Background: The family of this 89-nucleotide RNA from Chinchilla lanigera is "G-CSF factor stem-loop destabilising element (SLDE)". A reference for the family is Putland et al. (2002), "RNA destabilization by the granulocyte colony-stimulating factor stem-loop destabilizing element involves a single stem-loop that promotes deadenylation", Mol Cell Biol. The organism belongs to Chinchilla, within Eukaryota. It scores 64 bits against the family's covariance model. Rfam classes the family as a cis-regulatory element. Gene Ontology term of the family: nuclear-transcribed mRNA poly(A) tail shortening.
[Rfam]
RNA sequence: CUGUGCCUUGCACCGGGCCCAGGCGCAUCAGGAGGUCUCCCGCGUGGGAGAUGACAUCCCUGUUUAAUAUUUAAACAGCACUCUUCCCA
Numbered sequence: 001c002u003g004u005g006c007c008u009u010g011c012a013c014c015g016g017g018c019c020c021a022g023g024c025g026c027a028u029c030a031g032g033a034g035g036u037c038u039c040c041c042g043c044g045u046g047g048g049a050g051a052u053g054a055c056a057u058c059c060c061u062g063u064u065u066a067a068u069a070u071u072u073a074a075a076c077a078g079c080a081c082u083c084u085u086c087c088c089a
Stems, first nucleotide, its partner, number of pairs: 001022003005018004028054002035052007060078008
Dot-bracket structure: (((.((((......)))).))).....((.....(((((((....))))))))).....((((((((...))))))))...........